[Rfam]
RNA sequence: GACAAGGGGAGCGAGAAACUCCCCCGCCGUAAGACCAAGGGUUUCUGAUCAACGCUAAUCGGAUCAGAGUCAGUCGGGACCUAAGGCACAGCCGCAAGGCGCAGCCGAUGGAAGAAACGGUCAACAUUCCGUUACUCGGUAUGAGAGCGAUGUGGAGACGGAGAAGUGACACUCCCGCGCACUGACGGAAUAGUGCGUUAAACCGCGUAGGUAUAUUCCUUCCAGGCAAAUCCGGAGGGGAUGCUGAACCGGGACAGUACACCGAGCCCCCGGGCAAGGUGACAGCGGAGGUAAUCCCGCUCCCGAGAAAAUCCGCUAAGCAUAUCUCAUAUCGACCCGUACCCUAAACCGACACAGGUGGUCGGGUAGAACAUACCAAGGCGCU
Numbered sequence: 001g002a003c004a005a006g007g008g009g010a011g012c013g014a015g016a017a018a019c020u021c022c023c024c025c026g027c028c029g030u031a032a033g034a035c036c037a038a039g040g041g042u043u044u045c046u047g048a049u050c051a052a053c054g055c056u057a058a059u060c061g062g063a064u065c066a067g068a069g070u071c072a073g074u075c076g077g078g079a080c081c082u083a084a085g086g087c088a089c090a091g092c093c094g095c096a097a098g099g100c101g102c103a104g105c106c107g108a109u110g111g112a113a114g115a116a117a118c119g120g121u122c123a124a125c126a127u128u129c130c131g132u133u134a135c136u137c138g139g140u141a142u143g144a145g146a147g148c149g150a151u152g153u154g155g156a157g158a159c160g161g162a163g164a165a166g167u168g169a170c171a172c173u174c175c176c177g178c179g180c181a182c183u184g185a186c187g188g189a190a191u192a193g194u195g196c197g198u199u200a201a202a203c204c205g206c207g208u209a210g211g212u213a214u215a216u217u218c219c220u221u222c223c224a225g226g227c228a229a230a231u232c233c234g235g236a237g238g239g240g241a242u243g244c245u246g247a248a249c250c251g252g253g254a255c256a257g258u259a260c261a262c263c264g265a266g267c268c269c270c271c272g273g274g275c276a277a278g279g280u281g282a283c284a285g286c287g288g289a290g291g292u293a294a295u296c297c298c299g300c301u302c303c304c305g306a307g308a309a310a311a312u313c314c315g316c317u318a319a320g321c322a323u324a325u326c327u328c329a330u331a332u333c334g335a336c337c338c339g340u341a342c343c344c345u346a347a348a349c350c351g352a353c354a355c356a357g358g359u360g361g362u363c364g365g366g367u368a369g370a371a372c373a374u375a376c377c378a379a380g381g382c383g384c385u
Base pairs, nucleotide, nucleotide: 006024007023008022009021010020011019025383026382027381028380033363034362035361036360039343040342044068045067046066047065048064049063053061054060075339076338077337078336080111081110085106086105087104091100092099093098116133117132118131119130120129136335137334138333139332140331141330142329143328144327145326146325147321148320152316153315154314155313156312160303161302162301163300166296172290173289174288175287177198178197179196180195181194182193199264203257205255210250211249212248217240218239219238220237221236222235223234225233226232266283268281270279271278349358350357365377366376367375368374
Bacterial large subunit ribosomal RNA: a 385-nucleotide part of an RNA from Muribaculaceae bacterium Isolate-110. The literature on the family includes a 2002 paper in BMC Bioinformatics by Cannone et al., "The comparative RNA web (CRW) site: an online database of comparative sequence and structure information for ribosomal, intron, and other RNAs".